The family of this 93-nucleotide RNA sequence from Drosophila albomicans is "Small nucleolar RNA Me28S-Gm1083". Gene Ontology terms of the family: nucleolus and RNA processing. The organism belongs to Drosophila, within Eukaryota. The pairing is the family consensus, mapped onto this sequence.
[Rfam]
RNA sequence: UUCUUCUGAUGAGUGCUAACUUUCGCCCCUAUCUGAAAAAUAAGUGAAACUUCCCCUUGUUGAAUGCGAGAUUGGUCUUACUGAUAGAAAUGA
Number, nucleotide and partner (000 for none) at each position: 001u090002u088003c087004u086005u000006c000007u000008g000009a000010u000011g000012a000013g000014u000015g000016c000017u000018a000019a000020c000021u000022u000023u000024c000025g000026c000027c000028c000029c000030u000031a000032u000033c000034u000035g000036a000037a000038a000039a000040a000041u000042a000043a000044g000045u000046g000047a000048a000049a000050c000051u000052u000053c000054c000055c000056c000057u000058u000059g000060u000061u000062g000063a000064a000065u000066g000067c000068g000069a000070g000071a000072u000073u000074g000075g000076u000077c000078u000079u000080a000081c000082u000083g000084a000085u000086a004087g003088a002089a000090a001091u000092g000093a000